[Rfam]
RNA sequence: UGAAGUGAUUGUAGGGCACAAUCACGUUAAUCUAAAGAAAGCCCAAUUUAUU
Numbered sequence: 001u002g003a004a005g006u007g008a009u010u011g012u013a014g015g016g017c018a019c020a021a022u023c024a025c026g027u028u029a030a031u032c033u034a035a036a037g038a039a040a041g042c043c044c045a046a047u048u049u050a051u052u
Base pairs, nucleotide, nucleotide: 006024007023008022009021010020011019014044015043016042017041
Annotation:
6A RNA: a 52-nucleotide sequence. It is one of the family's seed sequences. It is annotated as a small RNA.